[Rfam]
RNA sequence: GGCCGGGCGUGCGGCUAAUACAAUACCCGUAAGGGAAAUAUGCCCGCCGGCUAUCUGCGGUUUUGAACGCCUGGUCGCCCUCUC
Number, nucleotide and partner (000 for none) at each position: 001g076002g075003c074004c073005g072006g071007g070008c069009g068010u000011g000012c000013g044014g043015c042016u040017a039018a000019u000020a000021c000022a000023a000024u000025a000026c035027c034028c033029g000030u000031a000032a000033g028034g027035g026036a000037a000038a000039u017040a016041u000042g015043c014044c013045c000046g061047c060048c059049g058050g000051c000052u000053a000054u000055c000056u000057g000058c049059g048060g047061u046062u000063u000064u000065g000066a000067a000068c009069g008070c007071c006072u005073g004074g003075u002076c001077g000078c000079c000080c000081u000082c000083u000084c000